[Rfam]
RNA sequence: AUUGCGAGUCGGGCGGCAGAAGUGCUGCUGACCACGUCAGAUUCGAAAGAAAGCAGCGACAGUGGUUAUUUUUGGGUGCCUGACUCACUUUUUU
Numbered sequence: 001a002u003u004g005c006g007a008g009u010c011g012g013g014c015g016g017c018a019g020a021a022g023u024g025c026u027g028c029u030g031a032c033c034a035c036g037u038c039a040g041a042u043u044c045g046a047a048a049g050a051a052a053g054c055a056g057c058g059a060c061a062g063u064g065g066u067u068a069u070u071u072u073u074g075g076g077u078g079c080c081u082g083a084c085u086c087a088c089u090u091u092u093u094u
Stems, first nucleotide, its partner, number of pairs: 004088001006086008014076001017074005024066006035058003042051003
RNA: Bacterial small signal recognition particle RNA